[Rfam]
RNA sequence: UGUCGGAUAAGGCGUCACGCUGCAUCCGACAUUUGCAUAUGAUGCCUGAUGCGACGCUGGCGCGUUUUAUCAGGCC
Numbered sequence: 001u002g003u004c005g006g007a008u009a010a011g012g013c014g015u016c017a018c019g020c021u022g023c024a025u026c027c028g029a030c031a032u033u034u035g036c037a038u039a040u041g042a043u044g045c046c047u048g049a050u051g052c053g054a055c056g057c058u059g060g061c062g063c064g065u066u067u068u069a070u071c072a073g074g075c076c
Stems, first nucleotide, its partner, number of pairs: 002030007011021004044075008053066005
The record is a 76-nucleotide RNA sequence from Escherichia coli, which matches "Nucleoid-associated noncoding RNA 4 (CssrE)" in Rfam. Rfam 15.1 lists 870 matches to the family in 32 species. Rfam links the family to the GO terms bacterial nucleoid, bacterial nucleoid DNA packaging and protein binding. From the family's description: In E. coli small RNA transcribed from repeated extragenic palindromic element (REP325) called nucleoid-associated ncRNA 4 (nRNA4) collaborates HU protein in condensing the DNA. The secondary structure but not the sequence of the RNA is important in nucleoid condensation. Also identified in Shigella as CssrE.